Rfam assigns this 146-nucleotide sequence from Gossypium schwendimanii to the family "MIR7502 microRNA precursor family". The family has 6 seed sequences and 74,505 matches in Rfam 15.1. The source organism's lineage runs through Eukaryota, Viridiplantae, Euphyllophyta, eudicotyledons and Gossypium. It scores 99 bits against the family's covariance model. Gene Ontology terms of the family: RISC complex and miRNA-mediated post-transcriptional gene silencing.

RNA sequence: UGUUAAAAAUUUCCAUCUAUUUGUACUGUUAAAAACUGACGUGGCUAAUAAAAUAAUGAAGUAGUGACAUGUGACGUGCUUUGUAUACCUUAUGCUGUUUUACAAUGACCAAUAUUUAAUAGUAGAAAUGCAUGAAAUUUUUAACA
Numbered sequence: 001u002g003u004u005a006a007a008a009a010u011u012u013c014c015a016u017c018u019a020u021u022u023g024u025a026c027u028g029u030u031a032a033a034a035a036c037u038g039a040c041g042u043g044g045c046u047a048a049u050a051a052a053a054u055a056a057u058g059a060a061g062u063a064g065u066g067a068c069a070u071g072u073g074a075c076g077u078g079c080u081u082u083g084u085a086u087a088c089c090u091u092a093u094g095c096u097g098u099u100u101u102a103c104a105a106u107g108a109c110c111a112a113u114a115u116u117u118a119a120u121a122g123u124a125g126a127a128a129u130g131c132a133u134g135a136a137a138u139u140u141u142u143a144a145c146a
Stems, first nucleotide, its partner, number of pairs: 002145011014134003019129004024124004029119005